[Rfam]
RNA sequence: UGCGCAGGGAUUGUGUAUCCGUGUUGUGCUAAAUAUAAAAGCUCUUUGUUCCGCAAAGAUUACCCUGCUUAAAAAGAACUGUCAGGGGAAAAUGGGGAGUUGUGUUUGAUAUAACAUGUUGAAAUCUCAACAAUGAUCUCCAUAUCA
Numbered sequence: 001u002g003c004g005c006a007g008g009g010a011u012u013g014u015g016u017a018u019c020c021g022u023g024u025u026g027u028g029c030u031a032a033a034u035a036u037a038a039a040a041g042c043u044c045u046u047u048g049u050u051c052c053g054c055a056a057a058g059a060u061u062a063c064c065c066u067g068c069u070u071a072a073a074a075a076g077a078a079c080u081g082u083c084a085g086g087g088g089a090a091a092a093u094g095g096g097g098a099g100u101u102g103u104g105u106u107u108g109a110u111a112u113a114a115c116a117u118g119u120u121g122a123a124a125u126c127u128c129a130a131c132a133a134u135g136a137u138c139u140c141c142a143u144a145u146c147a
Base pairs, nucleotide, nucleotide: 004068005067006066007065008064009063015042016041018039085141086140087139088138089137093136095134099131100130101129102128

This 147-nucleotide RNA sequence from Salix koriyanagi belongs to the Rfam family "small nucleolar RNA snoR135". The family has 6 seed sequences and 837 matches in Rfam 15.1. The literature on the family includes a 2009 paper in Nucleic Acids Res by Chen and Wu, "Mining small RNA sequencing data: a new approach to identify small nucleolar RNAs in Arabidopsis". The family's RNA type in Rfam is H/ACA-box small nucleolar RNA. Rfam links the family to the GO terms RNA processing and nucleolus. The base pairs follow the family's consensus structure, which was predicted with RNAalifold.